The record is a 68-nucleotide RNA, which matches "Cyano-1 RNA" in Rfam.
[Rfam]
RNA sequence: GGCUGUGUGAGGAGUGCAAGCGCCUCUUCAGGGUCGAAACAAGGACAGACUCCUGAAUGUGCCCACUU
Numbered sequence: 001g002g003c004u005g006u007g008u009g010a011g012g013a014g015u016g017c018a019a020g021c022g023c024c025u026c027u028u029c030a031g032g033g034u035c036g037a038a039a040c041a042a043g044g045a046c047a048g049a050c051u052c053c054u055g056a057a058u059g060u061g062c063c064c065a066c067u068u
Stems, first nucleotide, its partner, number of pairs: 020062004028056005033050003

Rfam 15.1 lists 283 matches to the family in 194 species. The family's consensus secondary structure is taken from published work.